About this RNA:
Rfam assigns this 62-nucleotide RNA sequence to the family "Hepatitis C virus stem-loop SL8001 RNA". On this family, see Pirakitikulr et al., Mol Cell 2016: "The Coding Region of the HCV Genome Contains a Network of Regulatory RNA Structures". The family's RNA type in Rfam is cis-regulatory element. The family's consensus secondary structure was predicted with RNAfold.
RNA sequence: CUGGCCACGAGGGCCACGAAGCACAUCAGAUACACGGGUCUGGGAAGACCUCGUGGCUGAGU
Numbered sequence: 001c002u003g004g005c006c007a008c009g010a011g012g013g014c015c016a017c018g019a020a021g022c023a024c025a026u027c028a029g030a031u032a033c034a035c036g037g038g039u040c041u042g043g044g045a046a047g048a049c050c051u052c053g054u055g056g057c058u059g060a061g062u
Stems, first nucleotide, its partner, number of pairs: 004057009014047001022042002025039002